Source information: Group II catalytic intron D1-D4-6: a 233-nucleotide RNA from Alkalicella caledoniensis.
RNA sequence: GAAUUCCCGUCGAGAAAGAACUAGCCAUUCACUCGUAGCGAGUCUUGGAGGGCAGCGGGUAACCGUUGCUUAUAAGCGUAGACAGUUAGGUAGUGGGCCGAAAGCCGUAAGGUUGAAGGGAUUGAGCUUCGAAAACCCGAAUCAGAAGGGCUGAUGUCAUGUCCUGUACAGAAAGCAACAUUUCUUUUCUCGAAAUGGCAAGAGGAAAGGAACCUUCUCGGAGUCAUUGACCU
Numbered sequence: 001g002a003a004u005u006c007c008c009g010u011c012g013a014g015a016a017a018g019a020a021c022u023a024g025c026c027a028u029u030c031a032c033u034c035g036u037a038g039c040g041a042g043u044c045u046u047g048g049a050g051g052g053c054a055g056c057g058g059g060u061a062a063c064c065g066u067u068g069c070u071u072a073u074a075a076g077c078g079u080a081g082a083c084a085g086u087u088a089g090g091u092a093g094u095g096g097g098c099c100g101a102a103a104g105c106c107g108u109a110a111g112g113u114u115g116a117a118g119g120g121a122u123u124g125a126g127c128u129u130c131g132a133a134a135a136c137c138c139g140a141a142u143c144a145g146a147a148g149g150g151c152u153g154a155u156g157u158c159a160u161g162u163c164c165u166g167u168a169c170a171g172a173a174a175g176c177a178a179c180a181u182u183u184c185u186u187u188u189c190u191c192g193a194a195a196u197g198g199c200a201a202g203a204g205g206a207a208a209g210g211a212a213c214c215u216u217c218u219c220g221g222a223g224u225c226a227u228u229g230a231c232c233u
Stems, first nucleotide, its partner, number of pairs: 011035004018030003022201001024199002038086002042083004046078002048073001050071009124225001126224006144218006150176003155170003181212011
The family has 174 seed sequences and 1,617 matches in Rfam 15.1.